[Rfam]
RNA sequence: UUCUUAUCCAGAGAGGUGGAGGGAAUGGCCCUUUGAAACCUCGGCAGCAGAUCUUGUUCUAAUAAAGAUACUGUGCUAAUUCCAGCAAGUUUGUCUUUGCAAACUUGAAAGAUGAGAA
Numbered sequence: 001u002u003c004u005u006a007u008c009c010a011g012a013g014a015g016g017u018g019g020a021g022g023g024a025a026u027g028g029c030c031c032u033u034u035g036a037a038a039c040c041u042c043g044g045c046a047g048c049a050g051a052u053c054u055u056g057u058u059c060u061a062a063u064a065a066a067g068a069u070a071c072u073g074u075g076c077u078a079a080u081u082c083c084a085g086c087a088a089g090u091u092u093g094u095c096u097u098u099g100c101a102a103a104c105u106u107g108a109a110a111g112a113u114g115a116g117a118a
Stems, first nucleotide, its partner, number of pairs: 001118008013042005021031003026084003043077004048073002051069004081110001086107008
Rfam assigns this 118-nucleotide RNA sequence from Clostridium luticellarii to the family "SAM riboswitch aptamer (S box leader)". The organism belongs to Clostridium, within Bacteria.